[Rfam]
The family of this 83-nucleotide sequence from Coptis chinensis is "Small nucleolar RNA snoR27".
A reference for the family is Brown et al. (2001), "Multiple snoRNA gene clusters from Arabidopsis", RNA.
Taxonomically the source falls in Coptis (Eukaryota, Viridiplantae, Streptophytina, Magnoliopsida).
Its Rfam clan is "snR68 clan".

RNA sequence: ACUGGAUCGAUGAUGUGAAUAUAUUACUGCGUUAUCUUUCUGAAAUUACUUUGAGGAAAGAUUCAUCUAAACUGAGGUCCACA
Numbered sequence: 001a002c003u004g005g006a007u008c009g010a011u012g013a014u015g016u017g018a019a020u021a022u023a024u025u026a027c028u029g030c031g032u033u034a035u036c037u038u039u040c041u042g043a044a045a046u047u048a049c050u051u052u053g054a055g056g057a058a059a060g061a062u063u064c065a066u067c068u069a070a071a072c073u074g075a076g077g078u079c080c081a082c083a
Stems, first nucleotide, its partner, number of pairs: 003081005
Dot-bracket structure: ..(((((.....................................................................)))))..